[Rfam]
RNA: Plant signal recognition particle RNA
Nucleotides: 303
Base pairs, nucleotide, nucleotide: 001040002039003038004023005022006021007020008019028037029036030035044302045301046300047299049297050296051295052294053293056290057289058287059286060285061283062282063281065279068277069276070275072273073272074271075270076269077268078263079262081260082259083258084257087255089253090252099248100247101246102245103244104243105242106241107237108236110235111234112233113232114231116228117227118226119225120224121223122222123221124220126165127164128163129162130161132159133158134157135156136155137154138153139152140151141150142149143148172219173218174217175216176215177214184209185208186207191202192201193200
Number, partner (000 for none) and nucleotide at each position: 001040g002039c003038c004023g005022a006021g007020c008019u009000g010000a011000g012000u013000a014000a015000c016000a017000c018000a019008a020007g021006c022005u023004u024000g025000u026000g027000a028037c029036c030035c031000a032000u033000g034000u035030g036029g037028g038003g039002g040001c041000a042000a043000c044302a045301a046300g047299g048000u049297g050296a051295u052294g053293g054000a055000a056290c057289a058287u059286g060285g061283c062282u063281a064000a065279g066000g067000c068277u069276u070275u071000g072273c073272a074271g075270g076269u077268u078263g079262g080000u081260c082259u083258g084257g085000u086000u087255g088000u089253u090252g091000c092000a093000c094000c095000a096000u097000g098000u099248u100247g101246g102245c103244c104243c105242g106241u107237c108236c109000g110235c111234u112233c113232c114231a115000a116228g117227u118226u119225g120224a121223g122222a123221g124220u125000u126165g127164a128163c129162c130161c131000c132159c133158g134157g135156g136155a137154u138153u139152u140151g141150u142149g143148c144000g145000a146000a147000g148143g149142c150141a151140u152139g153138g154137g155136u156135c157134u158133u159132g160000u161130g162129g163128g164127u165126c166000u167000u168000a169000g170000a171000c172219a173218g174217g175216a176215g177214g178000g179000u180000a181000c182000a183000g184209c185208g186207u187000g188000a189000g190000g191202c192201u193200g194000g195000u196000u197000u198000c199000a200193c201192a202191g203000a204000g205000c206000a207186g208185c209184g210000a211000a212000c213000a214177c215176u216175u217174c218173c219172u220124a221123c222122u223121c224120u225119u226118g227117a228116c229000a230000g231114u232113g233112g234111a235110g236108g237107g238000a239000u240000c241106a242105c243104g244103g245102g246101u247100c248099g249000c250000u251000g252090c253089a254000c255087c256000u257084c258083u259082g260081g261000c262079c263078c264000a265000c266000a267000a268077a269076a270075c271074c272073u273072g274000a275070a276069a277068a278000g279065c280000c281063u282062a283061g284000c285060c286059c287058a288000u289057u290056g291000a292000a293053c294052c295051a296050u297049c298000u299047c300046u301045u302044u303000u